The family of this 91-nucleotide sequence from Arsenophonus sp. ENCA is "sRNA-Xcc1". NCBI's taxonomy places the organism under Bacteria, Pseudomonadota, Gammaproteobacteria, Enterobacterales, Arsenophonus.
RNA sequence: GGUCGGGUAGCGAACAGAAAAUACAAAACCCUGAAAAGGGGAAAACUGUUGGCCGUCUCGUAGCGGGUUUCAAGUACCCGACCGCCCUACU
Numbered sequence: 001g002g003u004c005g006g007g008u009a010g011c012g013a014a015c016a017g018a019a020a021a022u023a024c025a026a027a028a029c030c031c032u033g034a035a036a037a038g039g040g041g042a043a044a045a046c047u048g049u050u051g052g053c054c055g056u057c058u059c060g061u062a063g064c065g066g067g068u069u070u071c072a073a074g075u076a077c078c079c080g081a082c083c084g085c086c087c088u089a090c091u
Stems, first nucleotide, its partner, number of pairs: 001083009013050004029040003051068001053066004
The base pairs follow the family's consensus structure, which was predicted with RNAalifold.